A member of the RNA family "Small Cajal body specific RNA 1" from Merluccius polli, 170 nucleotides long.
The match comes from Rfam's covariance-model search (58 bits).
RNA sequence: CCGCACCAGAUACAAACUGGGUAGCCAUCACUGGGAAAGACGAUUCGUGUUUCACUGUGAAUGACUUUGGCUACCCGGUUAUAACGUGGUGCAACAGGAAUAUUGGCCCUGAUAUUUUAAGCUUCUCAGUGGGAGUUGACACUGUUGAGUUAUGGCUCAGAGGCACAGAU
Numbered sequence: 001c002c003g004c005a006c007c008a009g010a011u012a013c014a015a016a017c018u019g020g021g022u023a024g025c026c027a028u029c030a031c032u033g034g035g036a037a038a039g040a041c042g043a044u045u046c047g048u049g050u051u052u053c054a055c056u057g058u059g060a061a062u063g064a065c066u067u068u069g070g071c072u073a074c075c076c077g078g079u080u081a082u083a084a085c086g087u088g089g090u091g092c093a094a095c096a097g098g099a100a101u102a103u104u105g106g107c108c109c110u111g112a113u114a115u116u117u118u119a120a121g122c123u124u125c126u127c128a129g130u131g132g133g134a135g136u137u138g139a140c141a142c143u144g145u146u147g148a149g150u151u152a153u154g155g156c157u158c159a160g161a162g163g164c165a166c167a168g169a170u
Stems, first nucleotide, its partner, number of pairs: 003092006015080004020075007027062002032057001033055001035053004040048003106164003127144005145160006
scaRNAs are a specific class of small nuclear RNAs which localise to the Cajal bodies and guide the modification of RNA polymerase II transcribed spliceosomal RNAs U1, U2, U4, U5 and U12. NCBI's taxonomy places the organism under Eukaryota, Vertebrata, Osteoglossocephalai, Euteleosteomorpha, Merluccius. Rfam classes the family as a small Cajal body RNA. A reference for the family is Darzacq et al. (2002), "Cajal body-specific small nuclear RNAs: a novel class of 2'-O-methylation and pseudouridylation guide RNAs", EMBO J.